[Rfam]
RNA sequence: GCAGUGACGGUUCUCCGAGCUUCCCGUCCUAAGUCAACACAGAUAUGGACCUGAAGCCGUGGCAAUUUCGCCACCAGGGUAAGCGCAGAAAUGCCCUUACCUCCCACGACUUGGAAAGGUGACCAUGUCUCAACUGC
Numbered sequence: 001g002c003a004g005u006g007a008c009g010g011u012u013c014u015c016c017g018a019g020c021u022u023c024c025c026g027u028c029c030u031a032a033g034u035c036a037a038c039a040c041a042g043a044u045a046u047g048g049a050c051c052u053g054a055a056g057c058c059g060u061g062g063c064a065a066u067u068u069c070g071c072c073a074c075c076a077g078g079g080u081a082a083g084c085g086c087a088g089a090a091a092u093g094c095c096c097u098u099a100c101c102u103c104c105c106a107c108g109a110c111u112u113g114g115a116a117a118g119g120u121g122a123c124c125a126u127g128u129c130u131c132a133a134c135u136g137c
Base pairs, nucleotide, nucleotide: 004130006128012122013121015119016118019057020056021055022054023053026050027049028048029047033044034043035042059074060073061072062071063070077102078101079100080099081098082097083096085094086093087092103114104113

The record is a 137-nucleotide sequence from Shewanella cyperi, which matches "Molybdenum/Tungsten riboswitch aptamer (Moco RNA motif)" in Rfam.